RNA: U1 spliceosomal RNA
Organism: Jatropha curcas
RNA sequence: AUACUUACCUGGACGGGGUCAAUGGGUGAUCAAGAAGGCCUAUGGCCUAGAUCAGUGACCUCCAUUGCACUUUGGAGGGGUGCUGGUCUAAGGUCUUCCCAAGAGGAAGAGCCUACGUCAUAAUUUGUGGCAGUGGGGGCCUGCGUUCGCGCGGCCCCUCC
Numbered sequence: 001a002u003a004c005u006u007a008c009c010u011g012g013a014c015g016g017g018g019u020c021a022a023u024g025g026g027u028g029a030u031c032a033a034g035a036a037g038g039c040c041u042a043u044g045g046c047c048u049a050g051a052u053c054a055g056u057g058a059c060c061u062c063c064a065u066u067g068c069a070c071u072u073u074g075g076a077g078g079g080g081u082g083c084u085g086g087u088c089u090a091a092g093g094u095c096u097u098c099c100c101a102a103g104a105g106g107a108a109g110a111g112c113c114u115a116c117g118u119c120a121u122a123a124u125u126u127g128u129g130g131c132a133g134u135g136g137g138g139g140c141c142u143g144c145g146u147u148c149g150c151g152c153g154g155c156c157c158c159u160c161c
Stems, first nucleotide, its partner, number of pairs: 012119004016048006023042005049089003053086001055083003059079003062075002091114003094110003098106002135160005142153004